The record is a 78-nucleotide RNA sequence from Laticauda laticaudata, which matches "Small nucleolar RNA SNORD47" in Rfam. On this family, see Galardi et al., Mol Cell Biol 2002: "Purified box C/D snoRNPs are able to reproduce site-specific 2'-O-methylation of target RNA in vitro".
RNA sequence: AACCAGUGAUGAGAUUAGAUUCUGCCAAAUGAAUAUUAAUGAUAUUAGCAUCAAUCCGUUCCACUUUUCACUGAGGUU
Numbered sequence: 001a002a003c004c005a006g007u008g009a010u011g012a013g014a015u016u017a018g019a020u021u022c023u024g025c026c027a028a029a030u031g032a033a034u035a036u037u038a039a040u041g042a043u044a045u046u047a048g049c050a051u052c053a054a055u056c057c058g059u060u061c062c063a064c065u066u067u068u069c070a071c072u073g074a075g076g077u078u
Stems, first nucleotide, its partner, number of pairs: 001078004
Record summary: The match comes from Rfam's covariance-model search (70 bits). Its family is annotated with nucleolus and RNA processing in the Gene Ontology.